[Rfam]
RNA sequence: CCGUGCAGCUGGGGAGUUAGCGGUGCCCUGUACCUGCAAUCCGCUAUAGCAGGAGUGAUAUCAAUCCGAGGGUCGAAGAAUGUGGGGCCGCCCUUAAAAAGUGACGAUGACGAUCUGGUCUUACGCAAUGAGAAUCUGUGAACCGUGUCAGAUCCUGACGGAAGCAGCACUAAGCAGAAUAUCUUGUGUGCCGUAAGGGUGCCGGAUUUGAGUAAACUAGUAAGGUAACGCCUGUGUUUGAGAUUCGAUGUGCGAUGCACGG
Numbered sequence: 001c002c003g004u005g006c007a008g009c010u011g012g013g014g015a016g017u018u019a020g021c022g023g024u025g026c027c028c029u030g031u032a033c034c035u036g037c038a039a040u041c042c043g044c045u046a047u048a049g050c051a052g053g054a055g056u057g058a059u060a061u062c063a064a065u066c067c068g069a070g071g072g073u074c075g076a077a078g079a080a081u082g083u084g085g086g087g088c089c090g091c092c093c094u095u096a097a098a099a100a101g102u103g104a105c106g107a108u109g110a111c112g113a114u115c116u117g118g119u120c121u122u123a124c125g126c127a128a129u130g131a132g133a134a135u136c137u138g139u140g141a142a143c144c145g146u147g148u149c150a151g152a153u154c155c156u157g158a159c160g161g162a163a164g165c166a167g168c169a170c171u172a173a174g175c176a177g178a179a180u181a182u183c184u185u186g187u188g189u190g191c192c193g194u195a196a197g198g199g200u201g202c203c204g205g206a207u208u209u210g211a212g213u214a215a216a217c218u219a220g221u222a223a224g225g226u227a228a229c230g231c232c233u234g235u236g237u238u239u240g241a242g243a244u245u246c247g248a249u250g251u252g253c254g255a256u257g258c259a260c261g262g
Stems, first nucleotide, its partner, number of pairs: 001262007008056003011029004016024003033053005061255002066250001070246005078239009093224004101217002104213002112208008120197006126188002129186005135178005145170004153162003
Source information
Rfam assigns this 262-nucleotide RNA sequence from Petrocella atlantisensis to the family "Bacterial large signal recognition particle RNA". By type it is a non-coding RNA gene. A search with the family's covariance model found it, with a score of 174 bits. Its Rfam clan is "SRP clan".